Shown here is a 102-nucleotide sequence from Chlorocebus sabaeus, a member of the family "Y RNA". The organism belongs to Chlorocebus, within Eukaryota. Y RNAs are components of the Ro ribonucleoprotein particle (Ro RNP), in association with Ro60 and La proteins. The Y RNAs and Ro60 and La proteins are well conserved, but the function of the Ro RNP is not known. In humans the RNA component can be one of four small RNAs -- hY1, hY3, hY4 and hY5. These small RNAs are predicted to fold into a conserved secondary structure containing three stem structures. The largest of the four, hY1, contains an additional hairpin. This family includes a significant number of annotated pseudogenes and the model is expected to discriminate poorly between real and Y RNA related pseudogenes. Pairs were carried over by alignment from the consensus structure, which is taken from published work. The match comes from Rfam's covariance-model search (62 bits).
[Rfam]
RNA sequence: GGCUGGUCCAAGUGCAGUGAUGUUUACAACCAAUUGAUCACAACCACUUACCAGUUUUCUGUGUUCCUUCUCACUUCCACUGCUUCACUUGACUAGCCUUAA
Numbered sequence: 001g002g003c004u005g006g007u008c009c010a011a012g013u014g015c016a017g018u019g020a021u022g023u024u025u026a027c028a029a030c031c032a033a034u035u036g037a038u039c040a041c042a043a044c045c046a047c048u049u050a051c052c053a054g055u056u057u058u059c060u061g062u063g064u065u066c067c068u069u070c071u072c073a074c075u076u077c078c079a080c081u082g083c084u085u086c087a088c089u090u091g092a093c094u095a096g097c098c099u100u101a102a
Stems, first nucleotide, its partner, number of pairs: 001098008010090002014086001016081004028065003033060001